Rfam assigns this 152-nucleotide RNA sequence from Erysipelatoclostridium sp. An173 to the family "glmS glucosamine-6-phosphate activated ribozyme aptamer". The family's consensus secondary structure is taken from published work. Rfam describes the family as follows. This entry contains a glucosamine-6-phosphate activated ribozyme that is found in the mRNA for GlmS. GlmS is an enzyme that uses fructose-6-phosphate and glutamine to generate glucosamine-6-phosphate. The ribozyme catalyses self cleavage of the glmS mRNA that is thought to regulate GlmS activity.

[Rfam]
RNA sequence: AAAUAACAAAUAGCGCCAGGACUAAGUUAUCUUAGUUGACGAGGACUAGACUUAUCGGAAGAUUCGGCGGAUGGUCUAGAGGUAUGAUACUACCUAAACAAUGAACAAAAAUAAUGAGCGAUCGUUAAACAAAUUCAUUCGGUAUCCUCCAU
Numbered sequence: 001a002a003a004u005a006a007c008a009a010a011u012a013g014c015g016c017c018a019g020g021a022c023u024a025a026g027u028u029a030u031c032u033u034a035g036u037u038g039a040c041g042a043g044g045a046c047u048a049g050a051c052u053u054a055u056c057g058g059a060a061g062a063u064u065c066g067g068c069g070g071a072u073g074g075u076c077u078a079g080a081g082g083u084a085u086g087a088u089a090c091u092a093c094c095u096a097a098a099c100a101a102u103g104a105a106c107a108a109a110a111a112u113a114a115u116g117a118g119c120g121a122u123c124g125u126u127a128a129a130c131a132a133a134u135u136c137a138u139u140c141g142g143u144a145u146c147c148u149c150c151a152u
Stems, first nucleotide, its partner, number of pairs: 020037007046079005055067004080095005099142001100139004112127006
A search with the family's covariance model found it, with a score of 84 bits.